A member of the RNA family "mir-17 microRNA precursor family" from Oryzias latipes, 79 nucleotides long. This family represents the microRNA (miRNA) precursor mir-17, family, which includes mir-20, mir-91, and mir-103. miRNAs are transcribed as ~70nt precursors (modelled here) and subsequently processed by the Dicer enzyme to give a ~22nt product. The source organism's lineage runs through Eukaryota, Vertebrata, Euteleosteomorpha, Oryziinae and Oryzias. Its family is annotated with miRNA-mediated post-transcriptional gene silencing and RISC complex in the Gene Ontology. The base pairs follow the family's consensus structure, which was predicted with RNAalifold. Rfam 15.1 lists 4,687 matches to the family in 648 species.
[Rfam]
RNA sequence: CACUGUAGUGUCAAAGUGCUUACAGUGCAGGUAGUUUUCUAAAAAUCUACUGCAGUGAAGGCACUUUCAGCACUGUUGU
Numbered sequence: 001c002a003c004u005g006u007a008g009u010g011u012c013a014a015a016g017u018g019c020u021u022a023c024a025g026u027g028c029a030g031g032u033a034g035u036u037u038u039c040u041a042a043a044a045a046u047c048u049a050c051u052g053c054a055g056u057g058a059a060g061g062c063a064c065u066u067u068c069a070g071c072a073c074u075g076u077u078g079u
Stems, first nucleotide, its partner, number of pairs: 005076004010071002014066008023057002026054003030051005